The record is a 210-nucleotide RNA from Pectobacterium atrosepticum, which matches "GlmZ RNA activator of glmS mRNA" in Rfam. The family's consensus secondary structure is taken from published work. This RNA was discovered in E. coli during a large scale screen. The source organism's lineage runs through Bacteria, Pseudomonadota, Gammaproteobacteria, Pectobacterium and Pectobacterium atrosepticum.
RNA sequence: GUAGAUGCUCAUUCCACCUUCUAUGCUUGCUUCGGCUUCAUAAUCCUGGGAAUGACGCAGAGCCAAUUUUGAGGUGCCUAUCGUCCAACUCCAGAUGAAGAUGCAAAUCUCCAUCGGGCUUUCCGGACAUAACGUUGAGUGAGGCACCAUUCUGUUGUCUGACAGACCUGAUAUUUUCAACGCUUACCGUUUAUCGGUAAGCGUUUUUUU
Numbered sequence: 001g002u003a004g005a006u007g008c009u010c011a012u013u014c015c016a017c018c019u020u021c022u023a024u025g026c027u028u029g030c031u032u033c034g035g036c037u038u039c040a041u042a043a044u045c046c047u048g049g050g051a052a053u054g055a056c057g058c059a060g061a062g063c064c065a066a067u068u069u070u071g072a073g074g075u076g077c078c079u080a081u082c083g084u085c086c087a088a089c090u091c092c093a094g095a096u097g098a099a100g101a102u103g104c105a106a107a108u109c110u111c112c113a114u115c116g117g118g119c120u121u122u123c124c125g126g127a128c129a130u131a132a133c134g135u136u137g138a139g140u141g142a143g144g145c146a147c148c149a150u151u152c153u154g155u156u157g158u159c160u161g162a163c164a165g166a167c168c169u170g171a172u173a174u175u176u177u178c179a180a181c182g183c184u185u186a187c188c189g190u191u192u193a194u195c196g197g198u199a200a201g202c203g204u205u206u207u208u209u210u
Base pairs, nucleotide, nucleotide: 001063002062006059007058008057009055010054011053012052015050017049019042027035029033073148074147075146076145077144078143079142083128084127085126086125094115095114096113097112157167158166159165179205180204181203182202183201184200185199186198187197188196189195